[Rfam]
RNA sequence: AGAUGAGAGAAACACCCCGCUCGCAGGAGACUGCGGGCGACCUCAGGGCGGGGCCUCCCCAGCAUCGCCCUGAUCGUGCCCUCGCGCACACCCCCGGGACCUCCGGUCCCGGAACUCCUCACCGAUCGGA
Number, nucleotide and partner (000 for none) at each position: 001a000002g000003a000004u121005g120006a119007g118008a000009g117010a116011a000012a000013c000014a000015c000016c000017c000018c039019g038020c037021u036022c035023g034024c033025a032026g031027g000028a000029g000030a000031c026032u025033g024034c023035g022036g021037g020038c019039g018040a000041c000042c000043u073044c072045a071046g070047g069048g000049c067050g066051g065052g000053g063054c062055c000056u000057c000058c000059c000060c000061a000062g054063c053064a000065u051066c050067g049068c000069c047070c046071u045072g044073a043074u000075c000076g089077u088078g087079c086080c000081c000082u000083c000084g000085c000086g079087c078088a077089c076090a000091c000092c000093c000094c112095c111096g110097g109098g108099a107100c106101c105102u000103c000104c000105g101106g100107u099108c098109c097110c096111g095112g094113a000114a000115c000116u010117c009118c007119u006120c005121a004122c129123c128124g000125a000126u000127c000128g123129g122130a000
Rfam assigns this 130-nucleotide RNA sequence from Streptomyces purpureus to the family "Streptomyces RNA 5676". On this family, see Vockenhuber et al., RNA Biol 2011: "Deep sequencing-based identification of small non-coding RNAs in Streptomyces coelicolor". By type it is a small RNA. The match comes from Rfam's covariance-model search (121 bits). About the family: Identified by deep sequencing of transcriptome at the end of exponential growth phase. Appears longer on northern blot than sequencing transcript. This indicates processing step. Streptomyces specific. The pairing is the family consensus, mapped onto this sequence. Taxonomically the source falls in Streptomyces (Bacteria, Bacillati, Actinomycetes, Kitasatosporales).